Shown here is a 70-nucleotide sequence from Burkholderia pseudomallei, a member of the family "int-alpA RNA". Pairs were carried over by alignment from the consensus structure, which is taken from published work. By type it is a small RNA.
[Rfam]
RNA sequence: CUCCUGCCUAGCUCGACGGGGCAAAAAGCCGGAAACCUUCACCGGCCUGGCAGGAGCACCCAAUUGAAGG
Numbered sequence: 001c002u003c004c005u006g007c008c009u010a011g012c013u014c015g016a017c018g019g020g021g022c023a024a025a026a027a028g029c030c031g032g033a034a035a036c037c038u039u040c041a042c043c044g045g046c047c048u049g050g051c052a053g054g055a056g057c058a059c060c061c062a063a064u065u066g067a068a069g070g
Base pairs, nucleotide, nucleotide: 001056002055003054004053005052006051007050008049011022012021013020014019028046029045030044031043032042036070037069038068039067040066041065
Dot-bracket structure: ((((((((..((((....)))).....(((((...[[[[[[)))))..))))))))........]]]]]]